[Rfam]
RNA sequence: CAGGAUCGAUGAUGCAACUAUUAACUGCGUUAUCUUUCUGCAACCUUUUUAUGGGUGCUGAAGAACACAUAAGCGGCUGAGAUCCAUG
Numbered sequence: 001c002a003g004g005a006u007c008g009a010u011g012a013u014g015c016a017a018c019u020a021u022u023a024a025c026u027g028c029g030u031u032a033u034c035u036u037u038c039u040g041c042a043a044c045c046u047u048u049u050u051a052u053g054g055g056u057g058c059u060g061a062a063g064a065a066c067a068c069a070u071a072a073g074c075g076g077c078u079g080a081g082a083u084c085c086a087u088g
Base pairs, nucleotide, nucleotide: 001088002087003085004084005083006082

Source information:
This 88-nucleotide RNA sequence from Panicum miliaceum belongs to the Rfam family "Small nucleolar RNA snoR27". It scores 57 bits against the family's covariance model. The family has 6 seed sequences and 649 matches in Rfam 15.1. Pairs were carried over by alignment from the consensus structure, which was predicted with WAR. For this family Rfam cites "Multiple snoRNA gene clusters from Arabidopsis" (Brown et al., RNA, 2001). Gene Ontology terms of the family: nucleolus and RNA processing.